[Rfam]
RNA sequence: CACGAGAAGGGCAAACCGGACGCGAGUCCGGGACGCAAAGCUAAGGGCCAGUGAGCAACGCUUGCUGGCAGCCUGGCUGCCGAUG
Numbered sequence: 001c002a003c004g005a006g007a008a009g010g011g012c013a014a015a016c017c018g019g020a021c022g023c024g025a026g027u028c029c030g031g032g033a034c035g036c037a038a039a040g041c042u043a044a045g046g047g048c049c050a051g052u053g054a055g056c057a058a059c060g061c062u063u064g065c066u067g068g069c070a071g072c073c074u075g076g077c078u079g080c081c082g083a084u085g
Base pairs, nucleotide, nucleotide: 001085003082004081011036012035016031017030018029019028020027021026034071039078040077041076042075044074045073046072047069048068049067050066051065052064053063054062